[Rfam]
RNA: Repression of heat shock gene expression (ROSE) element
RNA sequence: UGCAGGGCGCCGAAGCCGGGCCCUGCGUUGAAACUUGCUGAUGACUCAGGAGAUUCCCUAUAUGAAC
Numbered sequence: 001u002g003c004a005g006g007g008c009g010c011c012g013a014a015g016c017c018g019g020g021c022c023c024u025g026c027g028u029u030g031a032a033a034c035u036u037g038c039u040g041a042u043g044a045c046u047c048a049g050g051a052g053a054u055u056c057c058c059u060a061u062a063u064g065a066a067c
Base pairs, nucleotide, nucleotide: 001027002026003025004024005023006022007021008020010019011018012017031054034052035051036050038049039048040047041046